Neisseria sigma-E sRNA: a 79-nucleotide RNA from Neisseria sicca.
The organism belongs to Neisseria sicca, within Bacteria.
It is one of the family's seed sequences.
The base pairs follow the family's consensus structure, which is taken from published work.
It is annotated as a non-coding RNA gene.
RNA sequence: ACUAGUUUCAUAGUUCUUUAGGGUUACUUUUAAAACUCCUUGGAUAGCCUCCGCCAGCUCCCGGCAGGAGGCGUUUUUU
Number, nucleotide and partner (000 for none) at each position: 001a000002c000003u000004a037005g036006u035007u033008u032009c000010a030011u000012a028013g027014u000015u000016c000017u000018u000019u000020a000021g000022g000023g000024u000025u000026a000027c013028u012029u000030u010031u000032a008033a007034a000035a006036c005037u004038c000039c000040u000041u000042g000043g000044a000045u000046a000047g072048c071049c070050u069051c068052c067053g065054c064055c063056a000057g000058c000059u000060c000061c000062c000063g055064g054065c053066a000067g052068g051069a050070g049071g048072c047073g000074u000075u000076u000077u000078u000079u000